[Rfam]
RNA sequence: CUUGGGUAUGGGGACAUGUAUCCACAGACUUGGUCUGGCAUGCUGGUGGGGGCUUUGUGUGCCCUAGCUGGUGUGCUUACUAUUGCAAUGCCUGUUCCAGUCAUUGUGAAUAAU
Numbered sequence: 001c002u003u004g005g006g007u008a009u010g011g012g013g014a015c016a017u018g019u020a021u022c023c024a025c026a027g028a029c030u031u032g033g034u035c036u037g038g039c040a041u042g043c044u045g046g047u048g049g050g051g052g053c054u055u056u057g058u059g060u061g062c063c064c065u066a067g068c069u070g071g072u073g074u075g076c077u078u079a080c081u082a083u084u085g086c087a088a089u090g091c092c093u094g095u096u097c098c099a100g101u102c103a104u105u106g107u108g109a110a111u112a113a114u
Base pairs, nucleotide, nucleotide: 002113004111007108008107009106010105011104013102014101015100018097020095021094037077038076039075040074049063050062
Potassium channel RNA editing signal: a 114-nucleotide RNA from Eleutherodactylus coqui. Rfam classes the family as a cis-regulatory element. Its family is annotated with adenosine to inosine editing in the Gene Ontology. The source organism's lineage runs through Eukaryota, Gnathostomata, Anura, Eleutherodactylus and Eleutherodactylus. From the family's description: This family represents a group of sequences related to the human potassium channel Kv1.1 hairpin element which directs the efficient modification of an adenosine to inosine by an adenosine deaminase acting on RNA (ADAR).